A member of the RNA family "tRNA" from Oryzias sinensis, 73 nucleotides long.
The source organism's lineage runs through Eukaryota, Deuterostomia, Teleostei, Acanthomorphata and Oryzias.
Gene Ontology term of the family: triplet codon-amino acid adaptor activity.
[Rfam]
RNA sequence: GACCAUGUGACCUAAUGGACAAGGCGUCUGAGUCCGGAUCAGAAGGUUGAGGGUUCAAGUCCCUUCAUGGUUG
Numbered sequence: 001g002a003c004c005a006u007g008u009g010a011c012c013u014a015a016u017g018g019a020c021a022a023g024g025c026g027u028c029u030g031a032g033u034c035c036g037g038a039u040c041a042g043a044a045g046g047u048u049g050a051g052g053g054u055u056c057a058a059g060u061c062c063c064u065u066c067a068u069g070g071u072u073g
Stems, first nucleotide, its partner, number of pairs: 001072007011024003027043005049065005
Pairs were carried over by alignment from the consensus structure, which is taken from published work.
Rfam classes the family as a transfer RNA.